Description: This 104-nucleotide RNA sequence from Prunus armeniaca belongs to the Rfam family "MIR6274 microRNA precursor family". It scores 81 bits against the family's covariance model. Rfam 15.1 lists 342 matches to the family in 8 species. The base pairs follow the family's consensus structure, which was predicted with RNAalifold.

Nucleotides: 104
Base pairs, nucleotide, nucleotide: 002103003102004101005100012095013094014093015092016091018089019088020087022085023084024083026081027080028079029078030077031076032075033074035072036071037070038069039068040067041066042065043064044063046061047060048059050057
Number, partner (000 for none) and nucleotide at each position: 001000g002103g003102a004101u005100a006000a007000u008000g009000c010000u011000a012095u013094u014093u015092u016091g017000c018089u019088a020087u021000c022085c023084c024083c025000a026081g027080c028079u029078a030077a031076u032075a033074a034000c035072a036071u037070a038069a039068u040067g041066a042065c043064a044063c045000a046061u047060g048059a049000a050057a051000a052000a053000a054000u055000u056000a057050u058000c059048u060047c061046a062000c063044g064043u065042g066041u067040c068039a069038u070037u071036g072035u073000a074033u075032u076031a077030u078029u079028g080027g081026u082000c083024g084023g085022g086000g087020a088019u089018a090000a091016c092015a093014a094013a095012a096000g097000u098000g099000a100005u101004a102003u103002c104000c